[Rfam]
RNA: LOOT RNA
Nucleotides: 134
Stems, first nucleotide, its partner, number of pairs: 001040004009033001011031005047091011060077001062075005093112008113134009
Number, partner (000 for none) and nucleotide at each position: 001040g002039a003038c004037c005000u006000a007000a008000a009033c010000c011031c012030u013029a014028a015027a016000a017000c018000c019000u020000u021000u022000a023000a024000u025000u026000u027015u028014u029013u030012a031011g032000a033009g034000c035000a036000u037004g038003g039002u040001u041000g042000c043000a044000a045000g046000u047091c048090c049089u050088g051087a052086g053085c054084a055083a056082u057081a058000a059000a060077g061000a062075u063074g064073g065072u066071c067000u068000u069000c070000u071066g072065a073064c074063c075062a076000g077060u078000g079000c080000u081057u082056g083055u084054u085053g086052c087051u088050c089049a090048g091047g092000u093112c094111u095110a096109u097108g098107c099106c100105c101000g102000a103000a104000a105100g106099g107098g108097c109096g110095u111094a112093g113134g114133g115132u116131g117130g118129u119128u120127u121126c122000g123000a124000a125000a126121g127120a128119g129118a130117c131116u132115g133114u134113c